Description
The record is a 169-nucleotide sequence from Erwinia sp. Leaf53, which matches "sok antitoxin (CssrC)" in Rfam. The source organism's lineage runs through Bacteria, Pseudomonadota, Gammaproteobacteria, Enterobacterales and Erwinia. The family's RNA type in Rfam is antitoxin RNA. Rfam describes the family as follows. Also identified in Shigella as CssrC. The literature on the family includes a 2007 paper in Mol Microbiol by Kawano et al., "An antisense RNA controls synthesis of an SOS-induced toxin evolved from an antitoxin".

RNA sequence: CGGCGCUUGAGGCUUCUGCCUCAGGUUGCUGGCAACAGUGUCAGUGGAUGUGAGGCAGAAUGCAGAAAGCCCCGACGUUAAUUUUCCAAUUAACCCCGAGGCCCCUGUAUGACCACACAUCAUCAGGAUAGCCUCUUACCUGCCGCAAGGCAAGGAGAUGCCGACCAUG
Number, nucleotide and partner (000 for none) at each position: 001c000002g072003g071004c000005g070006c069007u068008u067009g000010a000011g000012g063013c062014u060015u059016c058017u057018g056019c055020c054021u053022c052023a000024g000025g049026u048027u000028g000029c000030u000031g000032g000033c000034a000035a000036c000037a000038g000039u000040g000041u000042c000043a000044g000045u000046g000047g000048a026049u025050g000051u000052g022053a021054g020055g019056c018057a017058g016059a015060a014061u000062g013063c012064a000065g000066a000067a008068a007069g006070c005071c003072c002073c000074g097075a000076c000077g095078u093079u092080a091081a090082u089083u088084u000085u000086c000087c000088a083089a082090u081091u080092a079093a078094c000095c077096c000097c074098g135099a134100g133101g132102c131103c000104c000105c127106u126107g000108u000109a123110u122111g121112a000113c000114c000115a000116c000117a000118c000119a000120u000121c111122a110123u109124c000125a000126g106127g105128a000129u000130a000131g102132c101133c100134u099135c098136u000137u000138a000139c000140c160141u000142g000143c157144c000145g000146c000147a000148a000149g000150g000151c000152a000153a000154g000155g000156a000157g143158a000159u000160g140161c000162c000163g000164a000165c000166c000167a000168u000169g000